[Rfam]
RNA sequence: GUAGGCUACGGGGACAUGUGUCCAACCACACCGGGAGGGAAGAUUGUAGGUACCCUCUGUGCCAUCGCUGGAGUCCUCACGAUUGCCCUCCCUGUGCCUGUCAUUGUCUCCAAU
Numbered sequence: 001g002u003a004g005g006c007u008a009c010g011g012g013g014a015c016a017u018g019u020g021u022c023c024a025a026c027c028a029c030a031c032c033g034g035g036a037g038g039g040a041a042g043a044u045u046g047u048a049g050g051u052a053c054c055c056u057c058u059g060u061g062c063c064a065u066c067g068c069u070g071g072a073g074u075c076c077u078c079a080c081g082a083u084u085g086c087c088c089u090c091c092c093u094g095u096g097c098c099u100g101u102c103a104u105u106g107u108c109u110c111c112a113a114u
Stems, first nucleotide, its partner, number of pairs: 001114002004111002008107004013102004018097004037077004049063003
Potassium channel RNA editing signal: a 114-nucleotide RNA sequence from Sarcophilus harrisii.
It is annotated as a cis-regulatory element.
Taxonomically the source falls in Sarcophilus (Eukaryota, Craniata, Euteleostomi, Sarcopterygii).
It scores 108 bits against the family's covariance model.